The family of this 35-nucleotide sequence from Mustela putorius is "Iron response element I". Rfam classes the family as a cis-regulatory element.
[Rfam]
RNA sequence: CUGUCUCUUGCUGCAACAUUGUUUGGACGGAAUAG
Numbered sequence: 001c002u003g004u005c006u007c008u009u010g011c012u013g014c015a016a017c018a019u020u021g022u023u024u025g026g027a028c029g030g031a032a033u034a035g
Stems, first nucleotide, its partner, number of pairs: 001035004006031003010028001012027001014025003017021001

Source information:
The family's consensus secondary structure is taken from published work. Rfam 15.1 lists 6,829 matches to the family in 599 species.